[Rfam]
RNA sequence: GGCUCGGGCGCGGACCUUUGGGUGGGUCCGCAGGAAUGGGGCCCGCUGAGUCCGUUUCGCUUGCGGCAGCGCGGUCGAGGCCCGACGGCACGCGCG
Numbered sequence: 001g002g003c004u005c006g007g008g009c010g011c012g013g014a015c016c017u018u019u020g021g022g023u024g025g026g027u028c029c030g031c032a033g034g035a036a037u038g039g040g041g042c043c044c045g046c047u048g049a050g051u052c053c054g055u056u057u058c059g060c061u062u063g064c065g066g067c068a069g070c071g072c073g074g075u076c077g078a079g080g081c082c083c084g085a086c087g088g089c090a091c092g093c094g095c096g
Base pairs, nucleotide, nucleotide: 001043002042003041004040005039010031011030012029013028014027015026016025017024069095070094071093072092074089075088076087077086